[Rfam]
RNA sequence: UUAAUAGAGUGAAUUCUACCUAAGACUCGGGUGGCUAACGCCUUAAUAUCCCGCCGAGGCCAGAAGAUUAUGAAGAUUUUAAAUGCUCCAUGUCUUUGUUGGCAUGGAGUUUUUUAGGCCUUAUA
Numbered sequence: 001u002u003a004a005u006a007g008a009g010u011g012a013a014u015u016c017u018a019c020c021u022a023a024g025a026c027u028c029g030g031g032u033g034g035c036u037a038a039c040g041c042c043u044u045a046a047u048a049u050c051c052c053g054c055c056g057a058g059g060c061c062a063g064a065a066g067a068u069u070a071u072g073a074a075g076a077u078u079u080u081a082a083a084u085g086c087u088c089c090a091u092g093u094c095u096u097u098g099u100u101g102g103c104a105u106g107g108a109g110u111u112u113u114u115u116a117g118g119c120c121u122u123a124u125a
Stems, first nucleotide, its partner, number of pairs: 028053004033042003085110010